[Rfam]
RNA sequence: CCGUGCUAGAUGGGGAGGUAGCGGUGCCCUGUAACCUGCAACCCGCUGUAGCAGGAUUGAAUUCCUAUCGGCGAUCUGUUGUUGUAGAGUCUGCCCUGGCUAAGUGGCGAGGAGGACUGGGUCCUGCGCAACGGGAACUUAUGAACCCCGUCAGGUCCGGAAGGAAGCAGCGGUAAGUAAGCCCUCUCGUGUGCCGCAGGGGUGCUUGGUCUGAGUUAACUGUCUAGGUACCGUCUGUAGCAACUUGUCAACGAUAGGUGCACGG
Numbered sequence: 001c002c003g004u005g006c007u008a009g010a011u012g013g014g015g016a017g018g019u020a021g022c023g024g025u026g027c028c029c030u031g032u033a034a035c036c037u038g039c040a041a042c043c044c045g046c047u048g049u050a051g052c053a054g055g056a057u058u059g060a061a062u063u064c065c066u067a068u069c070g071g072c073g074a075u076c077u078g079u080u081g082u083u084g085u086a087g088a089g090u091c092u093g094c095c096c097u098g099g100c101u102a103a104g105u106g107g108c109g110a111g112g113a114g115g116a117c118u119g120g121g122u123c124c125u126g127c128g129c130a131a132c133g134g135g136a137a138c139u140u141a142u143g144a145a146c147c148c149c150g151u152c153a154g155g156u157c158c159g160g161a162a163g164g165a166a167g168c169a170g171c172g173g174u175a176a177g178u179a180a181g182c183c184c185u186c187u188c189g190u191g192u193g194c195c196g197c198a199g200g201g202g203u204g205c206u207u208g209g210u211c212u213g214a215g216u217u218a219a220c221u222g223u224c225u226a227g228g229u230a231c232c233g234u235c236u237g238u239a240g241c242a243a244c245u246u247g248u249c250a251a252c253g254a255u256a257g258g259u260g261c262a263c264g265g
Base pairs, nucleotide, nucleotide: 001265002264003263004262005261006260009058010057011056012030013029014028015027017025019023035055036054037053038052039051064258065257066256067255068254069253070252073249074248075247079243080242081241082240083239084238085237086236087235088234092230093229096227097226098225099224101222104220105219106217107216108215114212115211116210117209118208119207120206121205122204123200124199125198126197127196128195129191130190132189133188134187135186136185138181139180140179141178142177148173149172150171151170156165157164158163
The family of this 265-nucleotide RNA sequence from Thermotalea metallivorans is "Bacterial large signal recognition particle RNA". About the family: The signal recognition particle (SRP) is a universally conserved ribonucleoprotein involved in the co-translational targeting of proteins to membranes. The family is grouped with related families in Rfam's "SRP clan". The family's RNA type in Rfam is non-coding RNA gene. The organism belongs to Thermotalea, within Bacteria.